Rfam assigns this 300-nucleotide sequence from Alphacoronavirus rousetti to the family "Alphacoronavirus 3'UTR". The literature on the family includes a 2014 paper in Virus Res by Madhugiri et al., "RNA structure analysis of alphacoronavirus terminal genome regions". Rfam's curators put it in the seed alignment. Rfam links the family to the GO term viral RNA genome replication. From the family's description: The 3' UTR of alphacoronaviruses consists of two small hairpins (PK-SL2) which can form an alternate conformation (PK-SL1) where the loop region of the second hairpin interacts with the stem of the first hairpin. PK-SL2 has been confirmed in HCoV-229E and HCoV-NL63 by in vitro structure probing experiments. Downstream of this pseudoknot lies the hypervariable region (HVR), which is supported by many covarying basepairs in alphacoronaviruses. Further, a conserved octanucleotide sequence is present in the HVR. Its Rfam clan is "Coronavirus 3' UTR". Taxonomically the source falls in Bat coronavirus HKU10 (Viruses, Riboviria, Orthornavirae, Pisuviricota).
Nucleotides: 300
Base pairs, nucleotide, nucleotide: 091108092107093106094105095104112144113143114142115141116140117139118138119137120136121135122134148285149284150283151282152281153280158270159269160268165262166261167260168259169258175251176250177249178248179247183245184244185243186242189240191238192237193236211220221230222229
Number, partner (000 for none) and nucleotide at each position: 001000a002000c003000g004000a005000c006000a007000u008000c009000a010000g011000a012000c013000u014000u015000u016000c017000g018000c019000u020000g021000u022000g023000a024000c025000u026000a027000c028000u029000u030000u031000u032000a033000g034000g035000u036000g037000g038000u039000c040000u041000a042000c043000u044000c045000c046000u047000u048000c049000a050000a051000a052000u053000u054000a055000a056000u057000a058000c059000g060000c061000a062000c063000c064000c065000u066000u067000u068000c069000u070000u071000c072000g073000g074000a075000u076000u077000g078000a079000c080000a081000a082000g083000g084000u085000g086000c087000u088000a089000c090000u091108c092107u093106u094105a095104u096000a097000c098000a099000g100000a101000a102000u103000g104095g105094u106093a107092a108091g109000c110000c111000u112144g113143u114142u115141u116140a117139u118138a119137a120136g121135c122134u123000a124000g125000u126000a127000u128000a129000a130000g131000u132000a133000g134122a135121g136120u137119u138118u139117a140116u141115a142114g143113a144112u145000a146000u147000u148285g149284c150283u151282g152281u153280g154000c155000c156000u157000a158270g159269a160268c161000c162000a163000a164000c165262g166261u167260a168259c169258a170000u171000a172000u173000u174000a175251c176250a177249a178248g179247a180000c181000a182000c183245u184244c185243c186242a187000g188000a189240g190000u191238c192237a193236g194000a195000g196000u197000a198000a199000u200000u201000u202000a203000a204000a205000g206000a207000u208000c209000c210000g211220c212000a213000u214000a215000g216000a217000c218000g219000a220211g221230c222229c223000a224000a225000c226000a227000a228000u229222g230221g231000a232000a233000g234000a235000g236193c237192u238191g239000u240189c241000a242186u243185g244184g245183a246000a247179u248178c249177u250176u251175g252000u253000a254000u255000a256000u257000a258169u259168g260167u261166a262165u263000c264000a265000g266000u267000a268160g269159u270158u271000g272000u273000u274000a275000g276000u277000g278000g279000a280153c281152a282151c283150g284149g285148c286000u287000u288000u289000g290000a291000u292000a293000g294000g295000g296000a297000u298000a299000c300000g